[Rfam]
RNA sequence: UACACCACUGACGGUUGAAACACCGUUUAUCCGCCAUUAUUGGUUUGGGGAGUGAAAAUUAAUCCGACACAGGGCGGGCGUGGCCAAGGUCGGUUGACGCGUCCGCAGGAGAUAGAA
Numbered sequence: 001u002a003c004a005c006c007a008c009u010g011a012c013g014g015u016u017g018a019a020a021c022a023c024c025g026u027u028u029a030u031c032c033g034c035c036a037u038u039a040u041u042g043g044u045u046u047g048g049g050g051a052g053u054g055a056a057a058a059u060u061a062a063u064c065c066g067a068c069a070c071a072g073g074g075c076g077g078g079c080g081u082g083g084c085c086a087a088g089g090u091c092g093g094u095u096g097a098c099g100c101g102u103c104c105g106c107a108g109g110a111g112a113u114a115g116a117a
Stems, first nucleotide, its partner, number of pairs: 003054003010027006031048002034043003063110003074106009084093002

RT-4 RNA: a 117-nucleotide sequence. Rfam's curators put it in the seed alignment. Pairs were carried over by alignment from the consensus structure, which is taken from published work.